This 71-nucleotide RNA sequence from Anopheles darlingi belongs to the Rfam family "mir-3 microRNA precursor family".

[Rfam]
Nucleotides: 071
Stems, first nucleotide, its partner, number of pairs: 005067006012060003018054002021051003
Number, partner (000 for none) and nucleotide at each position: 001000g002000u003000u004000a005067u006066g007065c008064g009063a010062c011000u012060a013059a014058c015000u016000u017000c018054g019053u020000u021051c022050a023049g024000a025000u026000g027000a028000u029000g030000u031000u032000u033000u034000g035000a036000u037000g038000u039000a040000a041000u042000u043000u044000c045000a046000u047000c048000a049023c050022u051021g052000g053019g054018c055000a056000a057000a058014g059013u060012u061000u062010g063009u064008c065007g066006c067005a068000u069000a070000a071000a
Rfam links the family to the GO terms miRNA-mediated post-transcriptional gene silencing and RISC complex. The literature on the family includes a 2003 paper in Dev Cell by Aravin et al., "The small RNA profile during Drosophila melanogaster development". Clan: mir-3 clan. A search with the family's covariance model found it, with a score of 63 bits.